[Rfam]
RNA sequence: UUCUCUCCGUGUUCACAGCGGACCUUGAUUUAAUGUCCAUACAAUUAAGGCACGCGGUGAAUGCCAAGAGAU
Numbered sequence: 001u002u003c004u005c006u007c008c009g010u011g012u013u014c015a016c017a018g019c020g021g022a023c024c025u026u027g028a029u030u031u032a033a034u035g036u037c038c039a040u041a042c043a044a045u046u047a048a049g050g051c052a053c054g055c056g057g058u059g060a061a062u063g064c065c066a067a068g069a070g071a072u
Base pairs, nucleotide, nucleotide: 003070004069005068006067009064010063011062012061013060014059015058016057018055019054020053023050024049025048026047027046028045029044030043
RNA: mir-124 microRNA precursor family